[Rfam]
RNA sequence: AAUUAACACUAGGGGUGUCUACUUAUAGACUGAGAUGGAAUGGCCGUUCUAAACCCUCUGAACCUGAUCUAGUUUACGCUGGCGUAGGGAAGUGGUAAUUGGUUGAA
Numbered sequence: 001a002a003u004u005a006a007c008a009c010u011a012g013g014g015g016u017g018u019c020u021a022c023u024u025a026u027a028g029a030c031u032g033a034g035a036u037g038g039a040a041u042g043g044c045c046g047u048u049c050u051a052a053a054c055c056c057u058c059u060g061a062a063c064c065u066g067a068u069c070u071a072g073u074u075u076a077c078g079c080u081g082g083c084g085u086a087g088g089g090a091a092g093u094g095g096u097a098a099u100u101g102g103u104u105g106a107a
Base pairs, nucleotide, nucleotide: 007094008093009092010091011057012056013055014054016051017030018029019028020027021026037050038049039048040047041046063088064087065086066085069082070081071080072079
Overview
The family of this 107-nucleotide RNA from Lederbergia citrea is "TPP riboswitch aptamer (THI element)". Rfam links the family to the GO term thiamine pyrophosphate binding. The base pairs follow the family's consensus structure, which is taken from published work.